About this RNA
Rfam assigns this 101-nucleotide sequence from Romboutsia maritimum to the family "azaaromatic riboswitch aptamer (yjdF RNA)". The family's consensus secondary structure is taken from published work. The source organism's lineage runs through Bacteria, Bacillati, Peptostreptococcales, Peptostreptococcaceae and Romboutsia.
RNA sequence: AAAAUUAGAGAUAAAAACACGGUUUCGGUUGGUAGUCUGAACAUAUCUUAUAAUAGCAAUAACCUGCCCUCCUGGGGUUGUCCCUUCUCUGUAAUUUAAAA
Numbered sequence: 001a002a003a004a005u006u007a008g009a010g011a012u013a014a015a016a017a018c019a020c021g022g023u024u025u026c027g028g029u030u031g032g033u034a035g036u037c038u039g040a041a042c043a044u045a046u047c048u049u050a051u052a053a054u055a056g057c058a059a060u061a062a063c064c065u066g067c068c069c070u071c072c073u074g075g076g077g078u079u080g081u082c083c084c085u086u087c088u089c090u091g092u093a094a095u096u097u098a099a100a101a
Stems, first nucleotide, its partner, number of pairs: 006091006022042002025040004044055003066078004